[Rfam]
RNA sequence: AAGGUCCUGGAUACGGGGCCGGGGCGCUGUCUGAGAGGCCUAUAAUUCUCACAGUGAACCGGUCUCUUUUCCAGUCCCUCA
Numbered sequence: 001a002a003g004g005u006c007c008u009g010g011a012u013a014c015g016g017g018g019c020c021g022g023g024g025c026g027c028u029g030u031c032u033g034a035g036a037g038g039c040c041u042a043u044a045a046u047u048c049u050c051a052c053a054g055u056g057a058a059c060c061g062g063u064c065u066c067u068u069u070u071c072c073a074g075u076c077c078c079u080c081a
Base pairs, nucleotide, nucleotide: 007074008073009072010071015066016065017064018063019062020061021060025056026055027054028053029052030051033050034049035048
This 81-nucleotide RNA from Salvelinus namaycush belongs to the Rfam family "mir-128 microRNA precursor family". The family's consensus secondary structure was predicted with RNAalifold. The literature on the family includes a 2006 paper in FEBS Lett by Xu et al., "Identification of microRNAs from different tissues of chicken embryo and adult chicken". The family has 57 seed sequences and 1,337 matches in Rfam 15.1. Its family is annotated with miRNA-mediated post-transcriptional gene silencing and RISC complex in the Gene Ontology.